[Rfam]
RNA sequence: CUACUCCCUGCGUCUCAAGAUAUAAGAACGUUUUUGAUAUUAGCAUAAUGUCAAAAACGUUCUUAUAUUUUGGGACGGAGGGAGUAA
Numbered sequence: 001c002u003a004c005u006c007c008c009u010g011c012g013u014c015u016c017a018a019g020a021u022a023u024a025a026g027a028a029c030g031u032u033u034u035u036g037a038u039a040u041u042a043g044c045a046u047a048a049u050g051u052c053a054a055a056a057a058c059g060u061u062c063u064u065a066u067a068u069u070u071u072g073g074g075a076c077g078g079a080g081g082g083a084g085u086a087a
Stems, first nucleotide, its partner, number of pairs: 003085003007081003011077001013075005019069023

MIR1120/MIR1122 microRNA precursor family: an 87-nucleotide RNA from Triticum aestivum. The family's consensus secondary structure was predicted with RNAalifold. It scores 88 bits against the family's covariance model. Lineage of the source: Eukaryota > Streptophytina > Triticodae > Triticinae > Triticum.